The record is a 127-nucleotide RNA from Streptomyces sp. TSRI0384-2, which matches "Streptomyces RNA 5676" in Rfam. The base pairs follow the family's consensus structure. The family's RNA type in Rfam is small RNA. It scores 79 bits against the family's covariance model. The source organism's lineage runs through Bacteria, Bacillati, Actinomycetota, Kitasatosporales and Streptomyces. Identified by deep sequencing of transcriptome at the end of exponential growth phase. Appears longer on northern blot than sequencing transcript.

[Rfam]
RNA sequence: AGAUGAGAGAAACACCCCGCUCGCAGUGCUCUGCGGGCGAGUCCGGGACGGGACGUACGCAGCACCGUUCCGACCGUGCCUUCGCGCACACCGGGGUCUCGCGCUCCGGGACUCCUCACGGAUCGGA
Number, nucleotide and partner (000 for none) at each position: 001a000002g000003a000004u118005g117006a116007g115008a000009g114010a113011a000012a000013c000014a000015c000016c000017c000018c039019g038020c037021u036022c035023g034024c033025a032026g031027u000028g000029c000030u000031c026032u025033g024034c023035g022036g021037g020038c019039g018040a000041g000042u000043c000044c072045g071046g070047g069048a000049c067050g066051g065052g000053a000054c062055g000056u000057a000058c000059g000060c000061a000062g054063c000064a000065c051066c050067g049068u000069u047070c046071c045072g044073a000074c000075c000076g089077u088078g087079c086080c000081u000082u000083c000084g000085c000086g079087c078088a077089c076090a000091c110092c109093g000094g107095g106096g105097u000098c103099u000100c000101g000102c000103g098104c000105u096106c095107c094108g000109g092110g091111a000112c000113u010114c009115c007116u006117c005118a004119c126120g000121g000122a000123u000124c000125g000126g119127a000